[Rfam]
The family of this 70-nucleotide RNA from Sphaceloma murrayae is "bZIP non canonical Hac1/Xbp1 intron". bZIP intron RNA is a non-canonical intron that was first reported in HAC1 gene in yeast and XBP1 gene in Metazoa. The family has 112 seed sequences and 1,325 matches in Rfam 15.1. The source organism's lineage runs through Eukaryota, Dikarya, leotiomyceta, Myriangiales and Sphaceloma.
RNA sequence: CGCCUCGCUCGACCCGACACAACAUUCUGCCGUAAUGUUGUGCGACCUGCAGUGUCGGUCGUUCGCGGCG
Dot-bracket structure: ((((.((..(((((......((((((.......))))))....(((.......))))))))..)).))))